[Rfam]
RNA: RNase MRP
RNA sequence: GGGCAUUCGGAACACUUGCACUCUGGGCUACUGACUGAGAACCAGUUUCUCCCCUUCCGCCCAGGGGAAAGUCCCCGGACUCGAGACAGAAAGUGUCCUGGUUGAAUCCUGCGUCGGCCGGUGAGGCGCAGUGUUUGAAGCUAAGACGUUCCAAUGAACCGAGCUUCGUCAUUGCCGGUCGGCUUUGUCAGUUAAAUAGUCAUGCAAGUAAGCAGCUACUUAACAGAACGGGGCUCAUUCUCGGAAUGCA
Numbered sequence: 001g002g003g004c005a006u007u008c009g010g011a012a013c014a015c016u017u018g019c020a021c022u023c024u025g026g027g028c029u030a031c032u033g034a035c036u037g038a039g040a041a042c043c044a045g046u047u048u049c050u051c052c053c054c055u056u057c058c059g060c061c062c063a064g065g066g067g068a069a070a071g072u073c074c075c076c077g078g079a080c081u082c083g084a085g086a087c088a089g090a091a092a093g094u095g096u097c098c099u100g101g102u103u104g105a106a107u108c109c110u111g112c113g114u115c116g117g118c119c120g121g122u123g124a125g126g127c128g129c130a131g132u133g134u135u136u137g138a139a140g141c142u143a144a145g146a147c148g149u150u151c152c153a154a155u156g157a158a159c160c161g162a163g164c165u166u167c168g169u170c171a172u173u174g175c176c177g178g179u180c181g182g183c184u185u186u187g188u189c190a191g192u193u194a195a196a197u198a199g200u201c202a203u204g205c206a207a208g209u210a211a212g213c214a215g216c217u218a219c220u221u222a223a224c225a226g227a228a229c230g231g232g233g234c235u236c237a238u239u240c241u242c243g244g245a246a247u248g249c250a
Stems, first nucleotide, its partner, number of pairs: 003249006010242002014209006022065007037051005070235002073233004085097004100109002112182001118178006128169002138166004148159004211220002
Dot-bracket structure: ..((((((.((..((((((..(((((((........(((((.....))))).......)))))))....[[.[[[[........((((.....))))..((......))..(.....((((((....((........((((......((((....))))...)))).))...))))))...).....................)))))).((......)).........]]]]]].....)).)))))).